[Rfam]
RNA sequence: UUGAGCUGAGGAGGACAUAAGUUAUCCCUGGCUGAAGUGACAUCUUUUGUGAAGAGUUCUGACUUAACUGAGGCUCAG
Numbered sequence: 001u002u003g004a005g006c007u008g009a010g011g012a013g014g015a016c017a018u019a020a021g022u023u024a025u026c027c028c029u030g031g032c033u034g035a036a037g038u039g040a041c042a043u044c045u046u047u048u049g050u051g052a053a054g055a056g057u058u059c060u061g062a063c064u065u066a067a068c069u070g071a072g073g074c075u076c077a078g
Base pairs, nucleotide, nucleotide: 001078002077003076004075005074006073007072
Dot-bracket structure: (((((((................................................................)))))))